[Rfam]
A member of the RNA family "Small nucleolar RNA SNORA64/SNORA10 family" from Tupaia belangeri, 134 nucleotides long. For this family Rfam cites "Nucleolar localization signals of box H/ACA small nucleolar RNAs" (Narayanan et al., EMBO J, 1999). Rfam classes the family as an H/ACA-box small nucleolar RNA. The family has 9 seed sequences and 703 matches in Rfam 15.1. The family's consensus secondary structure is taken from published work. A search with the family's covariance model found it, with a score of 82 bits. Rfam describes the family as follows. This family belongs to the H/ACA class of small nucleolar RNAs (snoRNAs) which act as guides in the the modification of uridines to pseudouridines. This family includes the human snoRNAs U64 and ACA10 and mouse MBI-29.
RNA sequence: CCUCUCUCAGCUCCAUUUGGUCACACAGGGCCCCAUGUGUGCUUGGCGUGUUUUGGGGGAGAGAAAGGAAGGCCCUCCCAAAGCAUAGCAGACCUGCAUAAAGUGACUUCUCUGUUCCUAGGAGUGUGAAGGUU
Numbered sequence: 001c002c003u004c005u006c007u008c009a010g011c012u013c014c015a016u017u018u019g020g021u022c023a024c025a026c027a028g029g030g031c032c033c034c035a036u037g038u039g040u041g042c043u044u045g046g047c048g049u050g051u052u053u054u055g056g057g058g059g060a061g062a063g064a065a066a067g068g069a070a071g072g073c074c075c076u077c078c079c080a081a082a083g084c085a086u087a088g089c090a091g092a093c094c095u096g097c098a099u100a101a102a103g104u105g106a107c108u109u110c111u112c113u114g115u116u117c118c119u120a121g122g123a124g125u126g127u128g129a130a131g132g133u134u
Base pairs, nucleotide, nucleotide: 002067003066005064006063007062008061011059012058013057014056019044020043022041023040024039025038026037075124076123077122078121081119083117090113091112092111096107